The family of this 122-nucleotide sequence from Gossypium mustelinum is "MIR7504 microRNA precursor family".
Nucleotides: 122
Base pairs, nucleotide, nucleotide: 001122002121003120004119005118006117007116008115009114010113012111013110014109015108016107017106018105019104020103021102023099024098025097026096027095028094029093030092031091032090033089034088035087036086037085038084040082041081044078045077046076047075
Number, partner (000 for none) and nucleotide at each position: 001122a002121a003120u004119a005118g006117u007116u008115u009114u010113g011000a012111g013110c014109c015108a016107c017106a018105u019104c020103a021102g022000c023099g024098u025097u026096u027095u028094a029093u030092c031091c032090u033089g034088a035087a036086u037085u038084u039000u040082a041081g042000c043000a044078u045077u046076u047075u048000c049000g050000u051000c052000c053000u054000g055000a056000a057000a058000a059000a060000a061000a062000u063000c064000a065000a066000a067000u068000c069000c070000a071000a072000a073000u074000u075047a076046a077045a078044a079000u080000c081041c082040u083000g084038a085037a086036a087035u088034u089033c090032a091031g092030g093029a094028u095027a096026a097025a098024a099023u100000u101000a102021u103020u104019g105018a106017u107016g108015u109014g110013g111012c112000a113010u114009a115008a116007a117006a118005c119004u120003a121002u122001u
A search with the family's covariance model found it, with a score of 109 bits. Its family is annotated with RISC complex and miRNA-mediated post-transcriptional gene silencing in the Gene Ontology.